[Rfam]
RNA sequence: GUAGUCGGAUUCGCAUCAAUCCACAUGUAUUGGAGUGGAACUUGAACUAAAUUCCACCCUAAUCCACUCCAACACAUGUGGAUUGAGGUGAAUCCGAUA
Numbered sequence: 001g002u003a004g005u006c007g008g009a010u011u012c013g014c015a016u017c018a019a020u021c022c023a024c025a026u027g028u029a030u031u032g033g034a035g036u037g038g039a040a041c042u043u044g045a046a047c048u049a050a051a052u053u054c055c056a057c058c059c060u061a062a063u064c065c066a067c068u069c070c071a072a073c074a075c076a077u078g079u080g081g082a083u084u085g086a087g088g089u090g091a092a093u094c095c096g097a098u099a
Stems, first nucleotide, its partner, number of pairs: 004098011016086013030072003035057003
This 99-nucleotide RNA sequence from Sorghum bicolor belongs to the Rfam family "MIR5565 microRNA precursor family". NCBI's taxonomy places the organism under Eukaryota, Petrosaviidae, Poaceae, Sorghinae, Sorghum.